Shown here is a 118-nucleotide RNA from Marivibrio halodurans, a member of the family "TPP riboswitch aptamer (THI element)". The family has 115 seed sequences and 16,130 matches in Rfam 15.1. The organism belongs to Marivibrio, within Bacteria. From the family's description: Vitamin B(1) in its active form thiamin pyrophosphate (TPP) is an essential coenzyme that is synthesised by coupling of pyrimidine and thiazole moieties in bacteria.
[Rfam]
RNA sequence: AAAUCUCAGUCGGGGUGCCCCUGUAGGACGGGGCUGAGAGGCGCGGCCGCUUGAUCCGUGCCAACUCGUGGAACCUGAUCCGGCUCGCACCGGCGUAGGGAACGGAGAUCCGACCUCG
Numbered sequence: 001a002a003a004u005c006u007c008a009g010u011c012g013g014g015g016u017g018c019c020c021c022u023g024u025a026g027g028a029c030g031g032g033g034c035u036g037a038g039a040g041g042c043g044c045g046g047c048c049g050c051u052u053g054a055u056c057c058g059u060g061c062c063a064a065c066u067c068g069u070g071g072a073a074c075c076u077g078a079u080c081c082g083g084c085u086c087g088c089a090c091c092g093g094c095g096u097a098g099g100g101a102a103c104g105g106a107g108a109u110c111c112g113a114c115c116u117c118g
Base pairs, nucleotide, nucleotide: 006106007105009103010102011068012067013066014065017034018033019032020031021030041061042060043059044058045057074099075098076097077096080093081092082091083090